[Rfam]
A member of the RNA family "Plastid-psbA-3 3UTR RNA" from Heptacodium miconioides, 56 nucleotides long. Rfam's curators write: Plastid psbA-3 is a non-coding RNA (ncRNA) present in plastids. It was identified in inverted repeat sequences in the 3 prime untranslate region (3UTR) of photosystem II quinone-binding protein (psbA). On this family, see Richter et al., Plant Commun 2023: "Retrograde signaling in plants: A critical review focusing on the GUN pathway and beyond". Its Rfam clan is "Plastid-psbA 3UTR RNA clan". Lineage of the source: Eukaryota > Streptophyta > Streptophytina > Gunneridae > Heptacodium. Rfam's curators put it in the seed alignment.
RNA sequence: AACGGAGCAAUAAUCCCUUUCUUGUUUUAGCAAGAAGGUGCUAUUGCUCCUUUUUU
Numbered sequence: 001a002a003c004g005g006a007g008c009a010a011u012a013a014u015c016c017c018u019u020u021c022u023u024g025u026u027u028u029a030g031c032a033a034g035a036a037g038g039u040g041c042u043a044u045u046g047c048u049c050c051u052u053u054u055u056u
Base pairs, nucleotide, nucleotide: 001053002052004050005049006048007047008046009045010044011043012042014040019036020035021034022033023032024031